[Rfam]
Mason-Pfizer monkey virus packaging signal: a 260-nucleotide RNA from Nannospalax galili. Rfam's curators write: This family represents a group of sequences that are related to the Mason-Pfizer monkey virus (MPMV) packaging signal. The packaging signal is located in the 5' UTR and is required for specific RNA encapsidation.

RNA sequence: UGGUGCCCAACGUGGCGGCUGGAUACUGGGGGCACAUCGUGAGGGAGGAUGCAAAAAGGAAGGAGUGCACUCGCUAAAUCUCAAGGAAUUCGGAGACGCGCCGUGGGAGCCUGCCACGAUCUGUCCGAUCAUGGGGCAAGGAUUAAGCCAGCAUCAGAUUUAUGUUAUGCAGUUGAAGGAGGCUCUCAAGACAAGAGGAGUAAAGGUUAAGACUGUGGAUUUAUUUCAUUUCUUUGAUUUUGUGAAGGACAUUUGUCCUU
Numbered sequence: 001u002g003g004u005g006c007c008c009a010a011c012g013u014g015g016c017g018g019c020u021g022g023a024u025a026c027u028g029g030g031g032g033c034a035c036a037u038c039g040u041g042a043g044g045g046a047g048g049a050u051g052c053a054a055a056a057a058g059g060a061a062g063g064a065g066u067g068c069a070c071u072c073g074c075u076a077a078a079u080c081u082c083a084a085g086g087a088a089u090u091c092g093g094a095g096a097c098g099c100g101c102c103g104u105g106g107g108a109g110c111c112u113g114c115c116a117c118g119a120u121c122u123g124u125c126c127g128a129u130c131a132u133g134g135g136g137c138a139a140g141g142a143u144u145a146a147g148c149c150a151g152c153a154u155c156a157g158a159u160u161u162a163u164g165u166u167a168u169g170c171a172g173u174u175g176a177a178g179g180a181g182g183c184u185c186u187c188a189a190g191a192c193a194a195g196a197g198g199a200g201u202a203a204a205g206g207u208u209a210a211g212a213c214u215g216u217g218g219a220u221u222u223a224u225u226u227c228a229u230u231u232c233u234u235u236g237a238u239u240u241u242g243u244g245a246a247g248g249a250c251a252u253u254u255g256u257c258c259u260u
Stems, first nucleotide, its partner, number of pairs: 006031003012026003037049002040046001090128004098121001102118005145186001147183003195235006204222005245260006

Lineage of the source: Eukaryota > Metazoa > Euteleostomi > Spalacidae > Nannospalax.